[Rfam]
RNA: Group II catalytic intron D1-D4-5
Organism: Clostridium perfringens
RNA sequence: GAGAACUAAUACUCCGAGCAAUUAAAUGAGGAAGUAACGCUCCGAAGAAUUGCCAUUAAUACUACGAUAUGCAAUGGAUUAAGUUAUUAUGAAGUUGUGUAAAGCUCGUUGAAGUCGGCAGAAAAAUUACCCUAACGAGUUAAGUCGAGGAAAGGUUUGAUUAGCCGUAAUUGAUAUGCCGGAUGUCUAUGAA
Numbered sequence: 001g002a003g004a005a006c007u008a009a010u011a012c013u014c015c016g017a018g019c020a021a022u023u024a025a026a027u028g029a030g031g032a033a034g035u036a037a038c039g040c041u042c043c044g045a046a047g048a049a050u051u052g053c054c055a056u057u058a059a060u061a062c063u064a065c066g067a068u069a070u071g072c073a074a075u076g077g078a079u080u081a082a083g084u085u086a087u088u089a090u091g092a093a094g095u096u097g098u099g100u101a102a103a104g105c106u107c108g109u110u111g112a113a114g115u116c117g118g119c120a121g122a123a124a125a126a127u128u129a130c131c132c133u134a135a136c137g138a139g140u141u142a143a144g145u146c147g148a149g150g151a152a153a154g155g156u157u158u159g160a161u162u163a164g165c166c167g168u169a170a171u172u173g174a175u176a177u178g179c180c181g182g183a184u185g186u187c188u189a190u191g192a193a
Stems, first nucleotide, its partner, number of pairs: 018053006031043001033041002054185004064109004068101005081096002116181005125172006131150003137146002154166004